This 134-nucleotide sequence from Dasypus novemcinctus belongs to the Rfam family "Small nucleolar RNA SNORA72". Rfam's curators put it in the seed alignment. About the family: U72 is a member of the H/ACA class of snoRNAs. The snoRNA gene is located in intron 4 of the ribosomal L30 protein gene in human, mouse and chicken. Rfam 15.1 lists 1,541 matches to the family in 547 species. The base pairs follow the family's consensus structure, which was predicted with PFOLD. Rfam links the family to the GO terms nucleolus and RNA processing.
[Rfam]
RNA sequence: CUGCGAAUAUUCUCGCUGUCCUGAUUUUGUGAUAAUCAGGGUAGGCUAAACAUUCGCUAUAUUAGAAACCAUGCAUGUGUCCCCAGACCUAGUUUUUCUCUCUAGGGCUGGUUUUUAGAAUGCUGGUGAUAAAC
Numbered sequence: 001c002u003g004c005g006a007a008u009a010u011u012c013u014c015g016c017u018g019u020c021c022u023g024a025u026u027u028u029g030u031g032a033u034a035a036u037c038a039g040g041g042u043a044g045g046c047u048a049a050a051c052a053u054u055c056g057c058u059a060u061a062u063u064a065g066a067a068a069c070c071a072u073g074c075a076u077g078u079g080u081c082c083c084c085a086g087a088c089c090u091a092g093u094u095u096u097u098c099u100c101u102c103u104a105g106g107g108c109u110g111g112u113u114u115u116u117a118g119a120a121u122g123c124u125g126g127u128g129a130u131a132a133a134c
Base pairs, nucleotide, nucleotide: 003057004056005055016044017043018042019041020040021039022038023037024036025035026034068127069126070125071124073123074122083111084110085109086108088106089105090104091103092102